[Rfam]
RNA sequence: GGGGUCGACUGGUUUUGACAGCAAGAUUAAUUAAACGGUAAGCACGUGGUGUAAUGAUUUUGAAACACCUAAAAGGCUAAAUCAAACUUUAAACGGCGAAAAUAAUUACGCUUUAGCUGCUUAAUCUGAAUUACAGUAGGAUUAGCCUCGGCACACAAGGUGUGCAAGCUAAAUGUCUCCAGAAAGCCUUGGUUAAUGGCGUUCUUUUUAGAGGCAUCGUAAAUAUUAACCAAGAUUAGGUAGAGCUUCGAUACCUUUUCGAGAUUUAGAAGCUAAGUAAUAAGUAGGUAGUUUUUAGCCGGCUUAUUAUCGAAAAUUAAGUAAAAACUAAACGUGUAGAAAGCCCUUUGGUUACUUGUUUGGACGAGAGUUCGAUUCUCUCCGACUCCACUU
Numbered sequence: 001g002g003g004g005u006c007g008a009c010u011g012g013u014u015u016u017g018a019c020a021g022c023a024a025g026a027u028u029a030a031u032u033a034a035a036c037g038g039u040a041a042g043c044a045c046g047u048g049g050u051g052u053a054a055u056g057a058u059u060u061u062g063a064a065a066c067a068c069c070u071a072a073a074a075g076g077c078u079a080a081a082u083c084a085a086a087c088u089u090u091a092a093a094c095g096g097c098g099a100a101a102a103u104a105a106u107u108a109c110g111c112u113u114u115a116g117c118u119g120c121u122u123a124a125u126c127u128g129a130a131u132u133a134c135a136g137u138a139g140g141a142u143u144a145g146c147c148u149c150g151g152c153a154c155a156c157a158a159g160g161u162g163u164g165c166a167a168g169c170u171a172a173a174u175g176u177c178u179c180c181a182g183a184a185a186g187c188c189u190u191g192g193u194u195a196a197u198g199g200c201g202u203u204c205u206u207u208u209u210a211g212a213g214g215c216a217u218c219g220u221a222a223a224u225a226u227u228a229a230c231c232a233a234g235a236u237u238a239g240g241u242a243g244a245g246c247u248u249c250g251a252u253a254c255c256u257u258u259u260c261g262a263g264a265u266u267u268a269g270a271a272g273c274u275a276a277g278u279a280a281u282a283a284g285u286a287g288g289u290a291g292u293u294u295u296u297a298g299c300c301g302g303c304u305u306a307u308u309a310u311c312g313a314a315a316a317u318u319a320a321g322u323a324a325a326a327a328c329u330a331a332a333c334g335u336g337u338a339g340a341a342a343g344c345c346c347u348u349u350g351g352u353u354a355c356u357u358g359u360u361u362g363g364a365c366g367a368g369a370g371u372u373c374g375a376u377u378c379u380c381u382c383c384g385a386c387u388c389c390a391c392u393u
Stems, first nucleotide, its partner, number of pairs: 001389007019362002021359005030352006037345003043336005048069005056082001058080002112173007174216006181205004187201001189199001193234002238256005244274006277310009287300003291328007366382005

This 393-nucleotide sequence from Seonamhaeicola sp. S2-3 belongs to the Rfam family "transfer-messenger RNA". Rfam describes the family as follows. Bacterial tmRNA, also known as 10Sa RNA or SsrA, is named for its dual tRNA and mRNA-like properties. Its role is to liberate the mRNA from a stalled ribosome. To accomplish this part of the tmRNA is used as a reading frame that ends in a translation stop signal. A search with the family's covariance model found it, with a score of 135 bits. The family's consensus secondary structure is taken from published work. The organism belongs to Seonamhaeicola, within Bacteria.